[Rfam]
RNA sequence: CGAAGGAAGAAGGGGUUUCUUUCGGCCUCCAGCGGCAUUAGAAAGUUGUAGGCCGGCGGAAACUACUUGCUUCCGUCG
Numbered sequence: 001c002g003a004a005g006g007a008a009g010a011a012g013g014g015g016u017u018u019c020u021u022u023c024g025g026c027c028u029c030c031a032g033c034g035g036c037a038u039u040a041g042a043a044a045g046u047u048g049u050a051g052g053c054c055g056g057c058g059g060a061a062a063c064u065a066c067u068u069g070c071u072u073c074c075g076u077c078g
Stems, first nucleotide, its partner, number of pairs: 005074004011068003014064007022056007030048003
RNA: mir-2796 microRNA precursor family